[Rfam]
RNA sequence: UGGACACGUACGUUUUCUUUCAGUUUCUCCUCUCUGUGGGGCAAACUGUACAAGUGUCCUAUAGUAACACAGAAGCUAUCUGUUCAGCUCUGGUGAGUUAAGGGGGUUGAAUCGUUCCACUUCUGACAGCU
Number, nucleotide and partner (000 for none) at each position: 001u000002g059003g058004a057005c056006a055007c054008g000009u052010a000011c000012g000013u000014u000015u000016u000017c000018u000019u000020u000021c000022a047023g046024u045025u044026u000027c041028u040029c039030c038031u000032c000033u000034c000035u000036g000037u000038g030039g029040g028041g027042c000043a000044a025045a024046c023047u022048g000049u000050a000051c000052a009053a000054g007055u006056g005057u004058c003059c002060u000061a000062u000063a000064g000065u000066a000067a000068c000069a000070c125071a124072g123073a122074a121075g120076c000077u000078a000079u000080c000081u000082g000083u000084u000085c000086a000087g000088c000089u105090c104091u103092g000093g000094u000095g000096a000097g000098u000099u000100a000101a000102g000103g091104g090105g089106g000107u000108u000109g000110a000111a000112u000113c000114g000115u000116u000117c000118c000119a000120c075121u074122u073123c072124u071125g070126a000127c000128a000129g000130c000131u000
The record is a 131-nucleotide RNA from Oxyruncus cristatus, which matches "Small Cajal body specific RNA 24" in Rfam.
From the family's description: scaRNAs are a specific class of small nuclear RNAs which localise to the Cajal bodies and guide the modification of RNA polymerase II transcribed spliceosomal RNAs U1, U2, U4, U5 and U12. ACA12 belongs to the H/ACA box class of guide RNAs as it has the predicted hairpin-hinge-hairpin-tail structure,the conserved H/ACA-box motifs and is found associated with GAR1.
By type it is a small Cajal body RNA.
Lineage of the source: Eukaryota > Teleostomi > Dipnotetrapodomorpha > Coelurosauria > Oxyruncus.
Its family is annotated with RNA processing, nucleolus and Cajal body in the Gene Ontology.
A reference for the family is Darzacq et al. (2002), "Cajal body-specific small nuclear RNAs: a novel class of 2'-O-methylation and pseudouridylation guide RNAs", EMBO J.